[Rfam]
RNA: GA-cis RNA
RNA sequence: AGUAAGAGGUGUCCAUGGAACGAAGUUCCAUUCAGGAUGGCACCGACGACAUGCCGCUGAGCGUAGCAAGGGGGCAGUACCUAUA
Numbered sequence: 001a002g003u004a005a006g007a008g009g010u011g012u013c014c015a016u017g018g019a020a021c022g023a024a025g026u027u028c029c030a031u032u033c034a035g036g037a038u039g040g041c042a043c044c045g046a047c048g049a050c051a052u053g054c055c056g057c058u059g060a061g062c063g064u065a066g067c068a069a070g071g072g073g074g075c076a077g078u079a080c081c082u083a084u085a
Base pairs, nucleotide, nucleotide: 008044009043010042011041012040013039015031016030017029018028019027020026053075054074055073057071058070061067062066